[Rfam]
RNA sequence: CGUCAAAAUCCGUGCCGAAAAUUGCGCGUUCCUUUCCGUUCGCGUAUACUUUAGCCGUUGACGUAACACAGUGUGUUCUGCGGCUACCACCCGCAAACGCUGUCGAUAAAAACCUCGCUCCGGCGGGGUUUUUU
Numbered sequence: 001c002g003u004c005a006a007a008a009u010c011c012g013u014g015c016c017g018a019a020a021a022u023u024g025c026g027c028g029u030u031c032c033u034u035u036c037c038g039u040u041c042g043c044g045u046a047u048a049c050u051u052u053a054g055c056c057g058u059u060g061a062c063g064u065a066a067c068a069c070a071g072u073g074u075g076u077u078c079u080g081c082g083g084c085u086a087c088c089a090c091c092c093g094c095a096a097a098c099g100c101u102g103u104c105g106a107u108a109a110a111a112a113c114c115u116c117g118c119u120c121c122g123g124c125g126g127g128g129u130u131u132u133u134u
Base pairs, nucleotide, nucleotide: 002062003061004060005059006058011057012056018052019051020050023046024045025044026043027042028041031038071104074099075098076097077096079095080094081093082092083091108133109132110131111130112129113128114127115126116125117124118123
The family of this 134-nucleotide RNA sequence from Trabulsiella odontotermitis is "istR Hfq binding RNA". Pairs were carried over by alignment from the consensus structure, which was predicted with CMfinder. The literature on the family includes a 2004 paper in Curr Biol by Vogel et al., "The small RNA IstR inhibits synthesis of an SOS-induced toxic peptide". Gene Ontology terms of the family: negative regulation of translation and mRNA binding. The organism belongs to Trabulsiella, within Bacteria. It scores 111 bits against the family's covariance model. Rfam classes the family as an antitoxin RNA.